[Rfam]
RNA sequence: UUAAUACUUCGGGGCAAGGUGUGAUUCCUUGAUCGGCGGUUAUAGUCCGCGAACCUACGGGUUGAGCUAGUGUAAUUCUAGUACCGACAGUUAUAGUCUGGAUGGGAGAAGAAAUGU
Numbered sequence: 001u002u003a004a005u006a007c008u009u010c011g012g013g014g015c016a017a018g019g020u021g022u023g024a025u026u027c028c029u030u031g032a033u034c035g036g037c038g039g040u041u042a043u044a045g046u047c048c049g050c051g052a053a054c055c056u057a058c059g060g061g062u063u064g065a066g067c068u069a070g071u072g073u074a075a076u077u078c079u080a081g082u083a084c085c086g087a088c089a090g091u092u093a094u095a096g097u098c099u100g101g102a103u104g105g106g107a108g109a110a111g112a113a114a115u116g117u
Stems, first nucleotide, its partner, number of pairs: 003115001005113001007111004017029003032097002034086002036050004045084002053062003066082005088100003
RNA: FMN riboswitch aptamer (RFN element)